This 84-nucleotide sequence from Gossypium anomalum belongs to the Rfam family "small nucleolar RNA snoR117". The source organism's lineage runs through Eukaryota, Viridiplantae, Tracheophyta, Malvales and Gossypium. The family's RNA type in Rfam is C/D-box small nucleolar RNA. Rfam links the family to the GO terms nucleolus and RNA processing. The base pairs follow the family's consensus structure, which was predicted with RNAalifold. The literature on the family includes a 2009 paper in Nucleic Acids Res by Chen and Wu, "Mining small RNA sequencing data: a new approach to identify small nucleolar RNAs in Arabidopsis".
RNA sequence: UGCCUAUGAUGUUAAUAAAUUUGUCCGUACCAUCUGAGAAUACUUUCUCUGAUGCAUUCAUUCUAAUUCUAUUUUCUGAGGCAA
Numbered sequence: 001u002g003c004c005u006a007u008g009a010u011g012u013u014a015a016u017a018a019a020u021u022u023g024u025c026c027g028u029a030c031c032a033u034c035u036g037a038g039a040a041u042a043c044u045u046u047c048u049c050u051g052a053u054g055c056a057u058u059c060a061u062u063c064u065a066a067u068u069c070u071a072u073u074u075u076c077u078g079a080g081g082c083a084a
Base pairs, nucleotide, nucleotide: 001083002082003081004080